Betaproteobacteria toxic small RNA: a 61-nucleotide sequence from Janthinobacterium agaricidamnosum.
The organism belongs to Janthinobacterium agaricidamnosum, within Bacteria.
Overexpression in amino aid rich medium attenuates growth, suggesting role in repressing amino acid intake and metabolism.
A reference for the family is Kimelman et al. (2012), "A vast collection of microbial genes that are toxic to bacteria", Genome Res.
RNA sequence: UGUCUCCUCUAUUCUCUUAACGGAAAAUAGAUUUAGCCCGCUCUCGAGCGGGCUUUUUUUU
Numbered sequence: 001u002g003u004c005u006c007c008u009c010u011a012u013u014c015u016c017u018u019a020a021c022g023g024a025a026a027a028u029a030g031a032u033u034u035a036g037c038c039c040g041c042u043c044u045c046g047a048g049c050g051g052g053c054u055u056u057u058u059u060u061u
Stems, first nucleotide, its partner, number of pairs: 008031005013024002035054008
Dot-bracket structure: .......(((((((........))..)))))...((((((((....)))))))).......